[Rfam]
RNA sequence: ACAUACCUUCGGGGCAGGGUGAAAUUCCCGACCGGUGGUGAAAACCCACGAGCCUGUGUCUCACAGGCACGACCCGGUGCAAUUCCGGGGUCGACGGUACAGUCCGGAUGAAAGAAGGUAUUC
Numbered sequence: 001a002c003a004u005a006c007c008u009u010c011g012g013g014g015c016a017g018g019g020u021g022a023a024a025u026u027c028c029c030g031a032c033c034g035g036u037g038g039u040g041a042a043a044a045c046c047c048a049c050g051a052g053c054c055u056g057u058g059u060c061u062c063a064c065a066g067g068c069a070c071g072a073c074c075c076g077g078u079g080c081a082a083u084u085c086c087g088g089g090g091u092c093g094a095c096g097g098u099a100c101a102g103u104c105c106g107g108a109u110g111a112a113a114g115a116a117g118g119u120a121u122u123c
Stems, first nucleotide, its partner, number of pairs: 003121008017029003031103002033093002035049004044091002054067001073089005095106003
A member of the RNA family "FMN riboswitch aptamer (RFN element)" from Anaerolinea thermophila, 123 nucleotides long. Pairs were carried over by alignment from the consensus structure, which is taken from published work. It scores 114 bits against the family's covariance model. Gene Ontology term of the family: FMN binding. From the family's description: The RFN element is a highly conserved domain that is found frequently in the 5'-untranslated regions of prokaryotic mRNAs that encode for flavin mononucleotide (FMN) biosynthesis and transport proteins.